The record is a 305-nucleotide RNA sequence from Artemisia annua, which matches "Plant signal recognition particle RNA" in Rfam. Rfam classes the family as a non-coding RNA gene. The family is grouped with related families in Rfam's "SRP clan". Rfam links the family to the GO terms SRP-dependent cotranslational protein targeting to membrane, signal sequence recognition and signal recognition particle, endoplasmic reticulum targeting. On this family, see Batey et al., Science 2000: "Crystal structure of the ribonucleoprotein core of the signal recognition particle".
RNA sequence: GCCGAGCUCGGUAACGUGAGCUUGUAACUCGAGUGAGGGCUUUAAAGUGGGAUGGACUGUGAUGGAACCAAAAUUGGUUGGGUCAAGCUGUUGCAAUAUCUGGUUUGCCCAUUCCAAGUCGAGAGUUGGAUCAUGUGGUUUGAGCGAAGGCUUGGGUCACCUGGUUCCUAGAGUAGAGGGCAAUGCGUUAGGCUGGUUUCACAGAGCUGCGAAUACUUCUCGCUCUUGACAGUGGAAGGAUAACGAGUCAGUGCACUCUUGACCCGAAUAACCAGCUUGGCUCCCUCUAAUGGACUCCCACUUUU
Numbered sequence: 001g002c003c004g005a006g007c008u009c010g011g012u013a014a015c016g017u018g019a020g021c022u023u024g025u026a027a028c029u030c031g032a033g034u035g036a037g038g039g040c041u042u043u044a045a046a047g048u049g050g051g052a053u054g055g056a057c058u059g060u061g062a063u064g065g066a067a068c069c070a071a072a073a074u075u076g077g078u079u080g081g082g083u084c085a086a087g088c089u090g091u092u093g094c095a096a097u098a099u100c101u102g103g104u105u106u107g108c109c110c111a112u113u114c115c116a117a118g119u120c121g122a123g124a125g126u127u128g129g130a131u132c133a134u135g136u137g138g139u140u141u142g143a144g145c146g147a148a149g150g151c152u153u154g155g156g157u158c159a160c161c162u163g164g165u166u167c168c169u170a171g172a173g174u175a176g177a178g179g180g181c182a183a184u185g186c187g188u189u190a191g192g193c194u195g196g197u198u199u200c201a202c203a204g205a206g207c208u209g210c211g212a213a214u215a216c217u218u219c220u221c222g223c224u225c226u227u228g229a230c231a232g233u234g235g236a237a238g239g240a241u242a243a244c245g246a247g248u249c250a251g252u253g254c255a256c257u258c259u260u261g262a263c264c265c266g267a268a269u270a271a272c273c274a275g276c277u278u279g280g281c282u283c284c285c286u287c288u289a290a291u292g293g294a295c296u297c298c299c300a301c302u303u304u305u
Stems, first nucleotide, its partner, number of pairs: 001040003004023007028037003044304009054295001057292001060289002064284003068280001071278002074275006080265008092255004100251008109239002112237005118230009128167006135160011168173001175220005184213001186211003193204003